[Rfam]
RNA sequence: CGGAACGCGUUGUUUCGAUGAGGAUUCCCCGAGGUGCUGCCACCUCUCCCGUUAAGUCGGUCGGACCUCAUGGCAACGACCGUCCUG
Dot-bracket structure: (((.(((.((((((((.((((((....((.((((((....))))))..(((......)))..)).)))))))).))))))))).)))
Numbered sequence: 001c002g003g004a005a006c007g008c009g010u011u012g013u014u015u016c017g018a019u020g021a022g023g024a025u026u027c028c029c030c031g032a033g034g035u036g037c038u039g040c041c042a043c044c045u046c047u048c049c050c051g052u053u054a055a056g057u058c059g060g061u062c063g064g065a066c067c068u069c070a071u072g073g074c075a076a077c078g079a080c081c082g083u084c085c086u087g
Stems, first nucleotide, its partner, number of pairs: 001087003005083003009080006015073002018071006028064002031046006049060003
The record is an 87-nucleotide sequence from Gordonia sp. KTR9, which matches "DUF3800-IV RNA" in Rfam. Taxonomically the source falls in Gordonia (Bacteria, Bacillati, Actinomycetes, Gordoniaceae). The sequence is in the family's curated seed alignment. Pairs were carried over by alignment from the consensus structure, which is taken from published work.